RNA sequence: UUUCCUUGGGUCUGUAGUUGCAAGUGUCCUUUGUAUUGCUCGUAUGCGUAAUGCGCAUCUUUAAGCACAUAAUGCGGCACUUUAGUCCAUGGCAGACGCGGUCAAAAGGAUCCACGUAAUCGCUUUAGCGAGAGCAUGGCGCGUUCUAGAUAUAAGUCGCAUCGUUUGUUGAUGGCAACAUAGUGUUGCGCAAGCGAGAGAGUUGGCGUGUAAGCAAAGCUCCAAUGCGCGAGUGUGGGGUCAAAAACUAGGUCAGCUAAGGAAA
Numbered sequence: 001u002u003u004c005c006u007u008g009g010g011u012c013u014g015u016a017g018u019u020g021c022a023a024g025u026g027u028c029c030u031u032u033g034u035a036u037u038g039c040u041c042g043u044a045u046g047c048g049u050a051a052u053g054c055g056c057a058u059c060u061u062u063a064a065g066c067a068c069a070u071a072a073u074g075c076g077g078c079a080c081u082u083u084a085g086u087c088c089a090u091g092g093c094a095g096a097c098g099c100g101g102u103c104a105a106a107a108g109g110a111u112c113c114a115c116g117u118a119a120u121c122g123c124u125u126u127a128g129c130g131a132g133a134g135c136a137u138g139g140c141g142c143g144u145u146c147u148a149g150a151u152a153u154a155a156g157u158c159g160c161a162u163c164g165u166u167u168g169u170u171g172a173u174g175g176c177a178a179c180a181u182a183g184u185g186u187u188g189c190g191c192a193a194g195c196g197a198g199a200g201a202g203u204u205g206g207c208g209u210g211u212a213a214g215c216a217a218a219g220c221u222c223c224a225a226u227g228c229g230c231g232a233g234u235g236u237g238g239g240g241u242c243a244a245a246a247a248c249u250a251g252g253u254c255a256g257c258u259a260a261g262g263a264a265a
Stems, first nucleotide, its partner, number of pairs: 001265009012256003015250005089236003092102001095145006111139002120130001137243001158229005163196007200222004208215002
RNA: raiA RNA